[Rfam]
RNA sequence: AAUCUUGGAUAGUCGCUGUAAGGAAAGCUUAUAGAGGAAAGUCCAUGCUUGCAUAGGCUGCGAUGCCUAUAGUGUUUGUGCCAAAGGAAACCAUAACUUUGGGCUGUAUUUUACAGACGGCCGAUAAUUCUCUAAGUGAAAAUAAGAGAAAAAUCGAUAAAGUGCCACAGAGACGAGUUUGUUUGGAAACAACAAAGUGAAACGCGGUAAACCCCUCAAGCAAGAAACUCAAAUUUGGUAGAGGAACUUCUACGUUUGAAAUGAAAAACAAAGAAGAUGUUUCGACAUAGAUAAAUGACUAUCACUACAUGAAUUGUAGUACAGAACAUGGCUUACAAAG
Numbered sequence: 001a002a003u004c005u006u007g008g009a010u011a012g013u014c015g016c017u018g019u020a021a022g023g024a025a026a027g028c029u030u031a032u033a034g035a036g037g038a039a040a041g042u043c044c045a046u047g048c049u050u051g052c053a054u055a056g057g058c059u060g061c062g063a064u065g066c067c068u069a070u071a072g073u074g075u076u077u078g079u080g081c082c083a084a085a086g087g088a089a090a091c092c093a094u095a096a097c098u099u100u101g102g103g104c105u106g107u108a109u110u111u112u113a114c115a116g117a118c119g120g121c122c123g124a125u126a127a128u129u130c131u132c133u134a135a136g137u138g139a140a141a142a143u144a145a146g147a148g149a150a151a152a153a154u155c156g157a158u159a160a161a162g163u164g165c166c167a168c169a170g171a172g173a174c175g176a177g178u179u180u181g182u183u184u185g186g187a188a189a190c191a192a193c194a195a196a197g198u199g200a201a202a203c204g205c206g207g208u209a210a211a212c213c214c215c216u217c218a219a220g221c222a223a224g225a226a227a228c229u230c231a232a233a234u235u236u237g238g239u240a241g242a243g244g245a246a247c248u249u250c251u252a253c254g255u256u257u258g259a260a261a262u263g264a265a266a267a268a269c270a271a272a273g274a275a276g277a278u279g280u281u282u283c284g285a286c287a288u289a290g291a292u293a294a295a296u297g298a299c300u301a302u303c304a305c306u307a308c309a310u311g312a313a314u315u316g317u318a319g320u321a322c323a324g325a326a327c328a329u330g331g332c333u334u335a336c337a338a339a340g
Stems, first nucleotide, its partner, number of pairs: 004340003007336001008303007016034006039334003043331005048224005053070006076219003080215001081102006103118001104116005119214002122156004129149004136143002162212002164208003178196005184191002228243003247276005277288004305319005
The family of this 340-nucleotide RNA from Firmicutes bacterium CAG:631 is "Bacterial RNase P class B". The match comes from Rfam's covariance-model search (272 bits). The base pairs follow the family's consensus structure, which is taken from published work. Lineage of the source: Bacteria > Bacillati > Bacillota. Its Rfam clan is "RNaseP clan". Rfam links the family to the GO terms ribonuclease P activity, dimeric ribonuclease P complex and tRNA processing.